[Rfam]
RNA sequence: AUGACGGCAAGGGGAGAGACCGGCAGAGGGAAACCUAAAAGCGGCGCCGAAGGAGCAAGCUGGGGAAACAGUGAAUCUCUCAGGCAAAAGAACUCUUGCUUGACG
Number, nucleotide and partner (000 for none) at each position: 001a000002u000003g000004a000005c000006g100007g099008c098009a097010a096011g095012g094013g093014g000015a000016g000017a000018g000019a000020c044021c043022g042023g000024c000025a000026g000027a000028g000029g000030g000031a000032a000033a000034c000035c000036u000037a000038a000039a000040a000041g000042c022043g021044g020045c000046g085047c084048c083049g081050a080051a000052g000053g079054a078055g077056c000057a000058a000059g072060c071061u000062g000063g000064g000065g000066a000067a000068a000069c000070a000071g060072u059073g000074a000075a000076u000077c055078u054079c053080u050081c049082a000083g048084g047085c046086a000087a000088a000089a000090g000091a000092a000093c013094u012095c011096u010097u009098g008099c007100u006101u000102g000103a000104c000105g000

About this RNA: Glycine riboswitch aptamer: a 105-nucleotide sequence from Bacillus licheniformis. It scores 64 bits against the family's covariance model. Lineage of the source: Bacteria > Bacillati > Bacillota > Bacilli > Bacillus licheniformis. The base pairs follow the family's consensus structure.